[Rfam]
RNA sequence: CUCACCCAGGGCUCCUGUAGCUCAGGGGGCAGGCCUGAGCCCUGCGCCCACCCAAGUCCGUCAAGCCCCAGGCGGGGCACCCUAUCUCAAGGGGCUCCGCACUGGCCCCAACCGAGGCAGGCGACCUGACCGGCUCGGAGCUCGGCUGGAUGUUACAGGCGUGCAAA
Number, nucleotide and partner (000 for none) at each position: 001c000002u000003c000004a000005c000006c000007c000008a043009g042010g041011g040012c039013u038014c037015c000016u000017g034018u033019a000020g030021c029022u028023c027024a000025g000026g000027g023028g022029g021030c020031a000032g000033g018034c017035c000036u000037g014038a013039g012040c011041c010042c009043u008044g162045c161046g160047c159048c158049c000050a000051c000052c000053c000054a000055a000056g000057u000058c000059c152060g151061u150062c149063a000064a147065g000066c000067c094068c093069c092070a000071g000072g000073c000074g088075g087076g086077g085078c000079a000080c000081c000082c000083u000084a000085u077086c076087u075088c074089a000090a000091g000092g069093g068094g067095c000096u139097c138098c137099g136100c000101a000102c000103u128104g126105g125106c000107c123108c000109c121110a000111a000112c000113c000114g000115a000116g000117g000118c000119a000120g000121g109122c000123g107124a000125c105126c104127u000128g103129a000130c000131c000132g000133g000134c000135u000136c099137g098138g097139a096140g146141c145142u000143c000144g000145g141146c140147u064148g000149g062150a061151u060152g059153u000154u000155a000156c000157a000158g048159g047160c046161g045162u044163g000164c000165a000166a000167a000
The record is a 167-nucleotide RNA sequence from Rousettus aegyptiacus, which matches "Spi-1 (PU.1) 5' UTR regulatory element" in Rfam. The source organism's lineage runs through Eukaryota, Teleostomi, Euteleostomi, Yinpterochiroptera and Rousettus. From the family's description: Spi-1 regulates myeloid gene expression during haemopoietic development. This family represents a regulatory element found in the 5' UTR of Spi-1 mRNA which is able to inhibit the translation Spi-1 transcripts by 8-fold. It scores 137 bits against the family's covariance model.